A member of the RNA family "tRNA" from a Thermoplasmata archaeon, 74 nucleotides long. About the family: Transfer RNA (tRNA) molecules are approximately 80 nucleotides in length. The organism belongs to Thermoplasmata, within Archaea.
Nucleotides: 074
Base pairs, nucleotide, nucleotide: 001073002072003071004070005069006068007067010027011026013024029045030044031043032042033041050066051065052064053063054062
Number, partner (000 for none) and nucleotide at each position: 001073g002072g003071g004070c005069u006068c007067g008000u009000a010027g011026u012000a013024u014000a015000g016000c017000u018000u019000g020000g021000a022000u023000a024013g025000c026011a027010u028000g029045g030044g031043g032042g033041c034000c035000u036000c037000c038000g039000g040000a041033g042032c043031c044030u045029c046000a047000g048000a049000c050066c051065c052064g053063g054062g055000u056000u057000c058000g059000a060000a061000u062054c063053c064052c065051g066050g067007c068006g069005g070004g071003c072002c073001c074000g
The family's RNA type in Rfam is transfer RNA.